[Rfam]
The record is an 88-nucleotide RNA sequence from Pelosinus fermentans, which matches "c-di-GMP-I riboswitch aptamer" in Rfam.
RNA sequence: UAGAAUUAUAAGCAAACCUGCCGAAAGGCAGGGACGCAAAGCCUUGGGUCUAACGAUACAAUUGUUCUAUGACUGCCAGGUUGCAUCA
Dot-bracket structure: ...........((...((((((....))))))...))..((((.((((((....((.........))...)))..)))))))......
NCBI's taxonomy places the organism under Bacteria, Bacillota, Negativicutes, Selenomonadales, Pelosinus fermentans.